The family of this 78-nucleotide RNA from Streptomyces turgidiscabies is "ASpks TB sRNA".
NCBI's taxonomy places the organism under Bacteria, Bacillati, Kitasatosporales, Streptomyces, Streptomyces turgidiscabies.
The family's consensus secondary structure is taken from published work.
RNA sequence: CUUGACCGAGCCGAGCCACAGCGGCGGCCGGUCCUCGGCCCGCCCCUGUCCGUAGGUGGCCAGCAGGGCGCUCGCCUC
Numbered sequence: 001c002u003u004g005a006c007c008g009a010g011c012c013g014a015g016c017c018a019c020a021g022c023g024g025c026g027g028c029c030g031g032u033c034c035u036c037g038g039c040c041c042g043c044c045c046c047u048g049u050c051c052g053u054a055g056g057u058g059g060c061c062a063g064c065a066g067g068g069c070g071c072u073c074g075c076c077u078c
Stems, first nucleotide, its partner, number of pairs: 015028003034074001041068001046063003050059003
The match comes from Rfam's covariance-model search (64 bits).